[Rfam]
RNA: SAM riboswitch aptamer (S box leader)
Organism: Aneurinibacillus sp. XH2
RNA sequence: AUCUUAUCACGAGAAGGCUGAGGGACUGGCCCAAUGAAGCCCGGCAACCUGCUUUUACGUUGAAAAAAGCAAGGUGCUAAUUCCUGCAGGAUGAACCGUUUCAUUCUGAAAGAUAAGAU
Numbered sequence: 001a002u003c004u005u006a007u008c009a010c011g012a013g014a015a016g017g018c019u020g021a022g023g024g025a026c027u028g029g030c031c032c033a034a035u036g037a038a039g040c041c042c043g044g045c046a047a048c049c050u051g052c053u054u055u056u057a058c059g060u061u062g063a064a065a066a067a068a069g070c071a072a073g074g075u076g077c078u079a080a081u082u083c084c085u086g087c088a089g090g091a092u093g094a095a096c097c098g099u100u101u102c103a104u105u106c107u108g109a110a111a112g113a114u115a116a117g118a119u
Stems, first nucleotide, its partner, number of pairs: 001119008013042001016041003022032003026086001028084002043078004048074002050071007082111001087108008